[Rfam]
RNA sequence: UGUCUGUGGUGAUGAUGUGGCAGUAGCCAUUGUCCUGAAACAAAUCCAUGUGGGUUUAUAGUCACUACCUCAUCUGAACAGUCA
Numbered sequence: 001u002g003u004c005u006g007u008g009g010u011g012a013u014g015a016u017g018u019g020g021c022a023g024u025a026g027c028c029a030u031u032g033u034c035c036u037g038a039a040a041c042a043a044a045u046c047c048a049u050g051u052g053g054g055u056u057u058a059u060a061g062u063c064a065c066u067a068c069c070u071c072a073u074c075u076g077a078a079c080a081g082u083c084a
Base pairs, nucleotide, nucleotide: 002083004081005080006079007078
Source information
This 84-nucleotide RNA from Cynoglossus semilaevis belongs to the Rfam family "Small nucleolar RNA SNORD11B". It scores 65 bits against the family's covariance model. Gene Ontology terms of the family: RNA processing and nucleolus.